[Rfam]
RNA sequence: GAUUUGUCCAAAGCUAGUAGAUUAUGUGAAUUGAUUGUUCAUAGUCAGUUGCAGGUUAAUCUCCUUGUUCUUAUUUUCCACUCUUCUCACUACUGCACUAGACUAAUGUUUU
Number, nucleotide and partner (000 for none) at each position: 001g000002a107003u106004u105005u000006g103007u102008c101009c000010a000011a099012a000013g000014c000015u095016a091017g090018u089019a000020g088021a087022u000023u000024a000025u000026g000027u000028g000029a000030a000031u000032u000033g000034a000035u000036u000037g000038u000039u000040c000041a000042u000043a075044g074045u073046c000047a071048g070049u000050u000051g000052c000053a000054g000055g000056u000057u000058a000059a000060u000061c000062u000063c000064c000065u000066u000067g000068u000069u000070c048071u047072u000073a045074u044075u043076u000077u000078c000079c000080a000081c000082u000083c000084u000085u000086c000087u021088c020089a018090c017091u016092a000093c000094u000095g015096c000097a000098c000099u011100a000101g008102a007103c006104u000105a004106a003107u002108g000109u000110u000111u000112u000